RNA sequence: AGGCGCAAGGGGCAAACCUAUCGAAAGGUGGGGACGCAAAGCUACAGACCUAAAGUGGGUAAAAAAUCCUAUCAAGGUGGCUGAGUUACCGUA
Numbered sequence: 001a002g003g004c005g006c007a008a009g010g011g012g013c014a015a016a017c018c019u020a021u022c023g024a025a026a027g028g029u030g031g032g033g034a035c036g037c038a039a040a041g042c043u044a045c046a047g048a049c050c051u052a053a054a055g056u057g058g059g060u061a062a063a064a065a066a067u068c069c070u071a072u073c074a075a076g077g078u079g080g081c082u083g084a085g086u087u088a089c090c091g092u093a
Stems, first nucleotide, its partner, number of pairs: 012037002017032006040087004045083003048078003055072004
Rfam assigns this 93-nucleotide sequence from Lysinibacillus halotolerans to the family "c-di-GMP-I riboswitch aptamer". It scores 74 bits against the family's covariance model. Pairs were carried over by alignment from the consensus structure, which is taken from published work.